[Rfam]
RNA sequence: UUAACUUACCGUUAGGUGAGGCUCCUGUAUAGAGACAGGCUACUGCCCAAAAAUGUCGAAAGACGCCAAUGGGUUUAACAGGAAAGAUCGGCUUAAGGUCUUUCUUAACGUAGCUGGCAUAAAGCCUAUGCUAUACAGUGCUAAAACUCGACGAGAGGUAGGUUUU
Number, nucleotide and partner (000 for none) at each position: 001u000002u000003a000004a000005c162006u161007u160008a159009c158010c157011g152012u151013u096014a000015g148016g147017u146018g000019a000020g142021g141022c140023u000024c000025c138026u137027g136028u135029a134030u133031a132032g131033a000034g000035a000036c000037a000038g000039g114040c113041u112042a111043c110044u000045g074046c073047c072048c071049a070050a000051a000052a000053a000054u065055g064056u063057c062058g000059a000060a000061a000062g057063a056064c055065g054066c000067c000068a000069a000070u049071g048072g047073g046074u045075u000076u000077a000078a000079c000080a000081g105082g104083a103084a102085a000086g000087a099088u098089c097090g000091g000092c000093u000094u000095a000096a013097g089098g088099u087100c000101u000102u084103u083104c082105u081106u000107a000108a000109c000110g043111u042112a041113g040114c039115u000116g126117g125118c124119a000120u000121a000122a000123a000124g118125c117126c116127u000128a000129u000130g000131c032132u031133a030134u029135a028136c027137a026138g025139u000140g022141c021142u020143a000144a000145a000146a017147c016148u015149c000150g000151a012152c011153g000154a000155g000156a000157g010158g009159u008160a007161g006162g005163u000164u000165u000166u000
RNA: M-box riboswitch aptamer (ykoK leader)